Overview: Rfam assigns this 241-nucleotide sequence from Serinus canaria to the family "Small nucleolar RNA SNORD17". Taxonomically the source falls in Serinus (Eukaryota, Gnathostomata, Sauria, Dinosauria). The snoRNA HBI-43 belongs to the C/D family of snoRNAs, guiding 2'O-ribose methylation at position U3797 of the 28S rRNA. Pseudouridylation in position U3797 is predicted to be guided by the H/ACA snoRNA ACA48. The family's RNA type in Rfam is C/D-box small nucleolar RNA.
[Rfam]
RNA sequence: GUGAGGUGAUGACACUGUUUAUCCAUUCUCUGAGUGCAGUGGCAGCGCUGCCCUCCUGCAGCACCCAGCUCCUGUUCUAGGCUACUGGGUGCUGUGCAGCCUCCAGACAUCCUGCAGUGUCCUGCUGGGGACUGCUGUGAUGUGUGGCUGGCUGCCUGCAGGAGGGGAACAGUGCUGGCAGGGUUGGAGCCCCUCUUUGGGGGCUCCAGCCUCACUGGGACGAGGGAUGACGUCUGAUCAU
Numbered sequence: 001g002u003g004a005g006g007u008g009a010u011g012a013c014a015c016u017g018u019u020u021a022u023c024c025a026u027u028c029u030c031u032g033a034g035u036g037c038a039g040u041g042g043c044a045g046c047g048c049u050g051c052c053c054u055c056c057u058g059c060a061g062c063a064c065c066c067a068g069c070u071c072c073u074g075u076u077c078u079a080g081g082c083u084a085c086u087g088g089g090u091g092c093u094g095u096g097c098a099g100c101c102u103c104c105a106g107a108c109a110u111c112c113u114g115c116a117g118u119g120u121c122c123u124g125c126u127g128g129g130g131a132c133u134g135c136u137g138u139g140a141u142g143u144g145u146g147g148c149u150g151g152c153u154g155c156c157u158g159c160a161g162g163a164g165g166g167g168a169a170c171a172g173u174g175c176u177g178g179c180a181g182g183g184u185u186g187g188a189g190c191c192c193c194u195c196u197u198u199g200g201g202g203g204c205u206c207c208a209g210c211c212u213c214a215c216u217g218g219g220a221c222g223a224g225g226g227a228u229g230a231c232g233u234c235u236g237a238u239c240a241u
Stems, first nucleotide, its partner, number of pairs: 010240003017233002020230001023226002026224003030219002034215002042179002045176001046174005052166002054163007061092007071081003096155006109141002114135005120129003181212008190203004